Rfam assigns this 134-nucleotide RNA sequence from Solanum tuberosum to the family "MIR7993 microRNA precursor family". Its family is annotated with RISC complex and miRNA-mediated post-transcriptional gene silencing in the Gene Ontology. The base pairs follow the family's consensus structure, which was predicted with RNAalifold. Rfam's curators put it in the seed alignment.
RNA sequence: UUAAGUUAACCACAUAAAAUAUGUUUAGUUUCUUUAGUUAUAUGCAGUCACCUCAAUAAGCUGUAAAAUCCUAGACAUUAAAGAUGAGGCAUAUACUUAAAGUAGACGAUAUAUUUUAUGUGGUUAACUUAACU
Numbered sequence: 001u002u003a004a005g006u007u008a009a010c011c012a013c014a015u016a017a018a019a020u021a022u023g024u025u026u027a028g029u030u031u032c033u034u035u036a037g038u039u040a041u042a043u044g045c046a047g048u049c050a051c052c053u054c055a056a057u058a059a060g061c062u063g064u065a066a067a068a069u070c071c072u073a074g075a076c077a078u079u080a081a082a083g084a085u086g087a088g089g090c091a092u093a094u095a096c097u098u099a100a101a102g103u104a105g106a107c108g109a110u111a112u113a114u115u116u117u118a119u120g121u122g123g124u125u126a127a128c129u130u131a132a133c134u
Stems, first nucleotide, its partner, number of pairs: 001132025029105002032102006039095007048086001051083001053081001